Shown here is a 65-nucleotide sequence from Bos grunniens, a member of the family "mir-33 microRNA precursor family". Lineage of the source: Eukaryota > Bilateria > Boreoeutheria > Artiodactyla > Bos. The base pairs follow the family's consensus structure, which was predicted with PFOLD. The literature on the family includes a 2009 paper in BMC Genomics by Li et al., "Direct sequencing and expression analysis of a large number of miRNAs in Aedes aegypti and a multi-species survey of novel mosquito miRNAs". Rfam links the family to the GO terms RISC complex and gene silencing by miRNA.
[Rfam]
RNA sequence: CAAGGGUGCAUUGCUGUUGCAUUGCAUGUGUGAGGCAGGUGCAGUGCCUCGGCAGUGCAGCCCGG
Numbered sequence: 001c002a003a004g005g006g007u008g009c010a011u012u013g014c015u016g017u018u019g020c021a022u023u024g025c026a027u028g029u030g031u032g033a034g035g036c037a038g039g040u041g042c043a044g045u046g047c048c049u050c051g052g053c054a055g056u057g058c059a060g061c062c063c064g065g
Stems, first nucleotide, its partner, number of pairs: 001065001004062001006061001007059010019047001021045007